[Rfam]
Overview: Shown here is a 278-nucleotide sequence from Geotrypetes seraphini, a member of the family "RNase MRP". Lineage of the source: Eukaryota > Bilateria > Sarcopterygii > Tetrapoda > Geotrypetes. On this family, see Schmitt et al., FASEB J 1993: "Secondary structure of RNase MRP RNA as predicted by phylogenetic comparison". Its family is annotated with ribonuclease MRP complex, ribonuclease MRP activity and rRNA processing in the Gene Ontology. The match comes from Rfam's covariance-model search (149 bits). Its Rfam clan is "RNaseP clan". By type it is a ribozyme.
RNA sequence: ACGCAUUCUGAAGACCUGUCGUCUAGGCCACGCACGGAGGACGUAGUUUCUCACGCGCUGUCCAGCGCUGCCUAGGGGAAAGUCCCCGGACCUCAGGCAGAAAGUGCCGCGGGCUCGUCCCACGGGCCCCCCACACCCCGCCCAAUGCCCGCACAUACACCGCCAAGAAGCCCCAGGGCCGAGCGAGCGAGCACGGGCGGGGCAUUUGUCACUGUAAUACAGAUACGCAGGCAGCGCGCGAGUCGCGCGAACAGCACGGGGCUCAUUCUCGGAGUGCA
Number, nucleotide and partner (000 for none) at each position: 001a000002c000003g277004c276005a275006u274007u273008c272009u271010g270011a269012a000013g000014a000015c231016c230017u229018g228019u227020c000021g000022u076023c075024u074025a073026g072027g071028c070029c000030a000031c000032g000033c000034a000035c000036g000037g052038a051039g050040g049041a048042c000043g000044u000045a000046g000047u000048u041049u040050c039051u038052c037053a000054c000055g000056c000057g000058c000059u000060g000061u000062c000063c000064a000065g000066c000067g000068c000069u000070g028071c027072c026073u025074a024075g023076g022077g000078g000079a000080a000081a263082g262083u000084c261085c260086c259087c258088g000089g000090a000091c000092c000093u000094c000095a000096g108097g107098c106099a105100g000101a000102a000103a000104g000105u099106g098107c097108c096109g131110c000111g129112g128113g127114c126115u125116c124117g123118u122119c000120c000121c000122a118123c117124g116125g115126g114127c113128c112129c111130c000131c109132c000133a000134c202135a000136c000137c000138c000139c199140g198141c197142c196143c195144a000145a000146u000147g000148c000149c191150c000151g000152c000153a000154c000155a000156u000157a000158c000159a000160c000161c185162g184163c183164c000165a000166a000167g000168a000169a000170g179171c178172c177173c000174c000175a000176g000177g172178g171179c170180c000181g000182a000183g163184c162185g161186a000187g000188c000189g000190a000191g149192c000193a000194c000195g143196g142197g141198c140199g139200g000201g000202g134203c000204a000205u000206u000207u000208g000209u000210c000211a000212c000213u000214g000215u000216a000217a000218u000219a000220c000221a000222g000223a000224u000225a000226c000227g019228c018229a017230g016231g015232c000233a000234g248235c247236g246237c245238g244239c000240g000241a000242g000243u000244c238245g237246c236247g235248c234249g000250a000251a000252c000253a000254g000255c000256a000257c000258g087259g086260g085261g084262c082263u081264c000265a000266u000267u000268c000269u011270c010271g009272g008273a007274g006275u005276g004277c003278a000